[Rfam]
RNA sequence: CAAGAAGUAGUUUAAUUAGAAUACCAGCUUUGGGUGCUGGUGGUGGGGAGUAGCUCCUUCUUCUUGA
Numbered sequence: 001c002a003a004g005a006a007g008u009a010g011u012u013u014a015a016u017u018a019g020a021a022u023a024c025c026a027g028c029u030u031u032g033g034g035u036g037c038u039g040g041u042g043g044u045g046g047g048g049a050g051u052a053g054c055u056c057c058u059u060c061u062u063c064u065u066g067a
Stems, first nucleotide, its partner, number of pairs: 001066007010022004024040005045059005
Shown here is a 67-nucleotide RNA from Mus musculus, a member of the family "tRNA". The literature on the family includes a 1993 paper in Trends Biochem Sci by Hou, "The tertiary structure of tRNA and the development of the genetic code". Taxonomically the source falls in Mus musculus (Eukaryota, Deuterostomia, Eutheria, Murinae).